[Rfam]
RNA: Nuclear RNase P
Organism: Macrophomina phaseolina
RNA sequence: GCCCUCGCCAAUGCUGCGUUUCUUUGCUCACAAACAGACACCGGGUCCCUCUCGGAUGUCCCUGCAUGCAAAUGAGAAAUUCGGAGUAAUCUUCAUCUUCACCCGCCACCUUUGGCCGCUGCCCGUGAGGGUCUGGCGUGAACACGCCUGCUCCUGGCAUCAGAAAGCUCAGGGCCAGCCGCCGGCACUGCCUUCGGGCGGUGCUCGUGCAGGUCUGUACCCCUAUGGGAGUCAGGGCGAAGAUUGUGUGUGCGCGAAAGCGUGCGACACUUUAGUGCAAUACGCGGCGUACCGUUUCCCUCGGUAUCAUUCGAUUCCGAUUACUCUGGCGAGAGC
Numbered sequence: 001g002c003c004c005u006c007g008c009c010a011a012u013g014c015u016g017c018g019u020u021u022c023u024u025u026g027c028u029c030a031c032a033a034a035c036a037g038a039c040a041c042c043g044g045g046u047c048c049c050u051c052u053c054g055g056a057u058g059u060c061c062c063u064g065c066a067u068g069c070a071a072a073u074g075a076g077a078a079a080u081u082c083g084g085a086g087u088a089a090u091c092u093u094c095a096u097c098u099u100c101a102c103c104c105g106c107c108a109c110c111u112u113u114g115g116c117c118g119c120u121g122c123c124c125g126u127g128a129g130g131g132u133c134u135g136g137c138g139u140g141a142a143c144a145c146g147c148c149u150g151c152u153c154c155u156g157g158c159a160u161c162a163g164a165a166a167g168c169u170c171a172g173g174g175c176c177a178g179c180c181g182c183c184g185g186c187a188c189u190g191c192c193u194u195c196g197g198g199c200g201g202u203g204c205u206c207g208u209g210c211a212g213g214u215c216u217g218u219a220c221c222c223c224u225a226u227g228g229g230a231g232u233c234a235g236g237g238c239g240a241a242g243a244u245u246g247u248g249u250g251u252g253c254g255c256g257a258a259a260g261c262g263u264g265c266g267a268c269a270c271u272u273u274a275g276u277g278c279a280a281u282a283c284g285c286g287g288c289g290u291a292c293c294g295u296u297u298c299c300c301u302c303g304g305u306a307u308c309a310u311u312c313g314a315u316u317c318c319g320a321u322u323a324c325u326c327u328g329g330c331g332a333g334a335g336c
Stems, first nucleotide, its partner, number of pairs: 001336002004333001008329003013288007023072004037060004042054004082319005091242004121132004135148005152237007172224003289307006